The record is a 70-nucleotide sequence from Betta splendens, which matches "mir-129 microRNA precursor family" in Rfam. It scores 80 bits against the family's covariance model. The literature on the family includes a 2002 paper in Curr Biol by Lagos-Quintana et al., "Identification of tissue-specific microRNAs from mouse". The family's consensus secondary structure was predicted with RNAalifold.

RNA sequence: ACGAAUCUUUUUGCGGUCUGGGCUUGCUGUGAAUACGUGAAUGGGAAGCCCUUACCCCAAAAAGCAUUUG
Numbered sequence: 001a002c003g004a005a006u007c008u009u010u011u012u013g014c015g016g017u018c019u020g021g022g023c024u025u026g027c028u029g030u031g032a033a034u035a036c037g038u039g040a041a042u043g044g045g046a047a048g049c050c051c052u053u054a055c056c057c058c059a060a061a062a063a064g065c066a067u068u069u070g
Stems, first nucleotide, its partner, number of pairs: 007064007015056003020051004025046001027044002